Shown here is a 72-nucleotide sequence from Dermatophagoides pteronyssinus, a member of the family "mir-2 microRNA precursor family". The family has 56 seed sequences and 918 matches in Rfam 15.1.
RNA sequence: UAAACCGCCAAAGUGGUUGUGAAAAUGUUCAAUUGGUAAAAAUCAUAUCACAGCCAGCUUUGGUGAGUUUAG
Number, nucleotide and partner (000 for none) at each position: 001u000002a000003a000004a000005c000006c065007g064008c063009c062010a061011a060012a059013g058014u056015g055016g054017u053018u052019g051020u050021g049022a048023a000024a000025a000026u047027g046028u045029u000030c000031a000032a000033u000034u000035g000036g000037u000038a000039a000040a000041a000042a000043u000044c000045a028046u027047a026048u022049c021050a020051c019052a018053g017054c016055c015056a014057g000058c013059u012060u011061u010062g009063g008064u007065g006066a000067g000068u000069u000070u000071a000072g000